A member of the RNA family "Betaproteobacteria-1 RNA" from Cupriavidus metallidurans, 118 nucleotides long. Rfam classes the family as a small RNA.
RNA sequence: CGCCUCGUUGGUCGGCUUGAUACGGCAGCGGCGAGGGGAUACUGGUCUCUGUGGGGGGAGAGCUGAGAAGACCAGCGUGCGGGCGAAGAUAGCGCACGGCUCGAAAUGACUGUCGGAA
Numbered sequence: 001c002g003c004c005u006c007g008u009u010g011g012u013c014g015g016c017u018u019g020a021u022a023c024g025g026c027a028g029c030g031g032c033g034a035g036g037g038g039a040u041a042c043u044g045g046u047c048u049c050u051g052u053g054g055g056g057g058g059a060g061a062g063c064u065g066a067g068a069a070g071a072c073c074a075g076c077g078u079g080c081g082g083g084c085g086a087a088g089a090u091a092g093c094g095c096a097c098g099g100c101u102c103g104a105a106a107u108g109a110c111u112g113u114c115g116g117a118a
Stems, first nucleotide, its partner, number of pairs: 001038001003036008025052004043074006060102004076098006088114005